[Rfam]
RNA sequence: CUGUACGGCUCCUGCAUUGUACACACUGUGCGUAACGGUUAUGUAAGCACAGCGCAUACAAUGUGGAUGCUGUGUCG
Numbered sequence: 001c002u003g004u005a006c007g008g009c010u011c012c013u014g015c016a017u018u019g020u021a022c023a024c025a026c027u028g029u030g031c032g033u034a035a036c037g038g039u040u041a042u043g044u045a046a047g048c049a050c051a052g053c054g055c056a057u058a059c060a061a062u063g064u065g066g067a068u069g070c071u072g073u074g075u076c077g
Stems, first nucleotide, its partner, number of pairs: 012066002015063007024054001026052006

Rfam assigns this 77-nucleotide sequence from Oncorhynchus kisutch to the family "mir-460 microRNA precursor family". The match comes from Rfam's covariance-model search (84 bits). Gene Ontology terms of the family: miRNA-mediated post-transcriptional gene silencing and RISC complex. NCBI's taxonomy places the organism under Eukaryota, Teleostei, Clupeocephala, Protacanthopterygii, Oncorhynchus.